RNA sequence: GGCCGCAGUUGCGGCUAUAGGGUUCAGUUAUUUAAAGCCCCGAUUUAUCGGGGUUUUUUGUUAUCUGAGUACGAAAUAACUGGGCUAUAUGCCCUUUUUUU
Numbered sequence: 001g002g003c004c005g006c007a008g009u010u011g012c013g014g015c016u017a018u019a020g021g022g023u024u025c026a027g028u029u030a031u032u033u034a035a036a037g038c039c040c041c042g043a044u045u046u047a048u049c050g051g052g053g054u055u056u057u058u059u060g061u062u063a064u065c066u067g068a069g070u071a072c073g074a075a076a077u078a079a080c081u082g083g084g085c086u087a088u089a090u091g092c093c094c095u096u097u098u099u100u101u
Base pairs, nucleotide, nucleotide: 034057035056036055037054038053039052040051041050042049082094083093084092085091
Gammaprotebacteria rimP leader: a 101-nucleotide RNA from Kosakonia cowanii. Lineage of the source: Bacteria > Enterobacterales > Enterobacteriaceae > Kosakonia > Kosakonia cowanii. Rfam links the family to the GO term regulation of gene expression. Pairs were carried over by alignment from the consensus structure, which is taken from published work.